The family of this 86-nucleotide sequence from Chiloscyllium punctatum is "Selenocysteine transfer RNA". Taxonomically the source falls in Chiloscyllium (Eukaryota, Opisthokonta, Bilateria, Selachii). It scores 52 bits against the family's covariance model.

[Rfam]
RNA sequence: GCCUGCGUGAUUCCUAGUGUUCUAGGGUGUAGGCUUCUAACCUGUAGCUGUUUAGCGACAGAGUGGUUCGAUUCCACCUUCCAGAU
Numbered sequence: 001g002c003c004u005g006c007g008u009g010a011u012u013c014c015u016a017g018u019g020u021u022c023u024a025g026g027g028u029g030u031a032g033g034c035u036u037c038u039a040a041c042c043u044g045u046a047g048c049u050g051u052u053u054a055g056c057g058a059c060a061g062a063g064u065g066g067u068u069c070g071a072u073u074c075c076a077c078c079u080u081c082c083a084g085a086u
Stems, first nucleotide, its partner, number of pairs: 001086001003084003007080001009078001012027006028046006048061005063077004
Dot-bracket structure: (.(((.(.(..((((((....))))))((((((.......)))))).(((((....))))).((((.......))))).).))).)